[Rfam]
The family of this 81-nucleotide sequence from Orycteropus afer is "mir-194 microRNA precursor family".
A reference for the family is Lagos-Quintana et al. (2003), "New microRNAs from mouse and human", RNA.
The match comes from Rfam's covariance-model search (56 bits).
Rfam links the family to the GO terms RISC complex and miRNA-mediated post-transcriptional gene silencing.
RNA sequence: UGGUAACCAUCAAAAGUAACAGCAUCUCCACUGGAAAUGGUACAUAGUCCACAUGGAGUUGCUGUUACAUUUGAUGACUCC
Numbered sequence: 001u002g003g004u005a006a007c008c009a010u011c012a013a014a015a016g017u018a019a020c021a022g023c024a025u026c027u028c029c030a031c032u033g034g035a036a037a038u039g040g041u042a043c044a045u046a047g048u049c050c051a052c053a054u055g056g057a058g059u060u061g062c063u064g065u066u067a068c069a070u071u072u073g074a075u076g077a078c079u080c081c
Stems, first nucleotide, its partner, number of pairs: 010074003016068008026058005032051003